[Rfam]
RNA: THF (Tetrahydrofolate) riboswitch aptamer
Organism: Clostridium acidisoli
RNA sequence: GGCAGAGUAGAUAAUUGUGCGUUAGAUUUAAUUAUUAUAUCUUAAGUGCUAGUUUUGGACGGGAAGUUGCCACUAGACGAAAACUUUAAUAAAUAUAAAAUUAGUAAAUUUUAUAUUUUAGUUACGAUACAAUUAUUGCAUUCCGCUGCC
Number, nucleotide and partner (000 for none) at each position: 001g150002g149003c148004a147005g146006a000007g000008u000009a000010g137011a136012u135013a134014a133015u132016u131017g130018u129019g128020c126021g125022u124023u000024a000025g000026a000027u000028u000029u000030a000031a000032u000033u000034a000035u000036u000037a000038u000039a000040u000041c000042u000043u000044a000045a000046g078047u077048g000049c076050u075051a074052g073053u072054u000055u000056u000057g071058g070059a000060c000061g000062g143063g142064a141065a000066g139067u000068u000069g000070c058071c057072a053073c052074u051075a050076g049077a047078c046079g000080a000081a000082a123083a122084c121085u120086u000087u000088a000089a000090u000091a000092a000093a000094u000095a000096u000097a000098a000099a000100a000101u000102u000103a000104g000105u000106a000107a000108a000109u000110u000111u000112u000113a000114u000115a000116u000117u000118u000119u000120a085121g084122u083123u082124a022125c021126g020127a000128u019129a018130c017131a016132a015133u014134u013135a012136u011137u010138g000139c066140a000141u064142u063143c062144c000145g000146c005147u004148g003149c002150c001